[Rfam]
RNA sequence: UCGCUCCUGGGAUUGGGGCCGCGCUACUGUCCAAUGAGCCCGUAGUGAGGGCAGUACUGCUAACGCCUGCACAACACACUCGCAUCCACUAAAGCUCUGCUUUACGCUGGUGCAAUUUUUAGAAAA
Numbered sequence: 001u002c003g004c005u006c007c008u009g010g011g012a013u014u015g016g017g018g019c020c021g022c023g024c025u026a027c028u029g030u031c032c033a034a035u036g037a038g039c040c041c042g043u044a045g046u047g048a049g050g051g052c053a054g055u056a057c058u059g060c061u062a063a064c065g066c067c068u069g070c071a072c073a074a075c076a077c078a079c080u081c082g083c084a085u086c087c088a089c090u091a092a093a094g095c096u097c098u099g100c101u102u103u104a105c106g107c108u109g110g111u112g113c114a115a116u117u118u119u120u121a122g123a124a125a126a
Stems, first nucleotide, its partner, number of pairs: 006018003021060003026055007038046002082113005090104006

The record is a 126-nucleotide RNA sequence from Aotus nancymaae, which matches "U4atac minor spliceosomal RNA" in Rfam. A search with the family's covariance model found it, with a score of 79 bits. The literature on the family includes a 2005 paper in RNA by Lorkovic et al., "Evolutionary conservation of minor U12-type spliceosome between plants and humans". From the family's description: U4atac is an essential component of the minor U12-type spliceosome complex which is required for removal of the rarer class of eukaryotic introns (AT-AC, U12-type). Gene Ontology terms of the family: U4atac snRNP, pre-mRNA 5'-splice site binding and mRNA 5'-splice site recognition.